[Rfam]
RNA sequence: GCGGGCGUGGCGGAAUGGCAGACGCGCCGGACUUAGGAUCCGGUGGGUAAAACCGUGUGAGUUCGACUCUCACCGCCCGCA
Numbered sequence: 001g002c003g004g005g006c007g008u009g010g011c012g013g014a015a016u017g018g019c020a021g022a023c024g025c026g027c028c029g030g031a032c033u034u035a036g037g038a039u040c041c042g043g044u045g046g047g048u049a050a051a052a053c054c055g056u057g058u059g060a061g062u063u064c065g066a067c068u069c070u071c072a073c074c075g076c077c078c079g080c081a
Base pairs, nucleotide, nucleotide: 001080002079003078004077005076006075007074010025011024012023027043028042029041030040031039057073058072059071060070061069
RNA: tRNA
Organism: Desulfotomaculum copahuensis